The family of this 238-nucleotide sequence from Drosophila simulans is "R2 RNA element". Rfam links the family to the GO term regulation of reverse transcription. From the family's description: This family represents the 3' UTR region of the R2 retrotransposable element. This family is known to interact with the R2-encoded reverse transcriptase in a reaction known as target primed reverse transcription (TPRT).
RNA sequence: AAUCAGAUAAAACAUUUGGUUAAAAACAUUUGUUGGCUGUAUUGGCUUAACAUCAUUAAAGGCAUAAACAUAGCAAAACAAUGGUUAUAUAUAAAUGGCUAUGAGGAUGGUUUUAGUACGUAGGCGUUGCGGAACUUCGGUUCGGAUUGAGCAAUGAAUUGUGCUCAAUAGGAAAAAUGACCACACGCAGGGUGGGCAGCCCUAGUUUCUUUUGAUAGAUUUCCAUACCUCCGCGAUC
Numbered sequence: 001a002a003u004c005a006g007a008u009a010a011a012a013c014a015u016u017u018g019g020u021u022a023a024a025a026a027c028a029u030u031u032g033u034u035g036g037c038u039g040u041a042u043u044g045g046c047u048u049a050a051c052a053u054c055a056u057u058a059a060a061g062g063c064a065u066a067a068a069c070a071u072a073g074c075a076a077a078a079c080a081a082u083g084g085u086u087a088u089a090u091a092u093a094a095a096u097g098g099c100u101a102u103g104a105g106g107a108u109g110g111u112u113u114u115a116g117u118a119c120g121u122a123g124g125c126g127u128u129g130c131g132g133a134a135c136u137u138c139g140g141u142u143c144g145g146a147u148u149g150a151g152c153a154a155u156g157a158a159u160u161g162u163g164c165u166c167a168a169u170a171g172g173a174a175a176a177a178u179g180a181c182c183a184c185a186c187g188c189a190g191g192g193u194g195g196g197c198a199g200c201c202c203u204a205g206u207u208u209c210u211u212u213u214g215a216u217a218g219a220u221u222u223c224c225a226u227a228c229c230u231c232c233g234c235g236a237u238c
Stems, first nucleotide, its partner, number of pairs: 038064003042060002070237002073234002103231004108225003116164005125156006132143004167206001169204003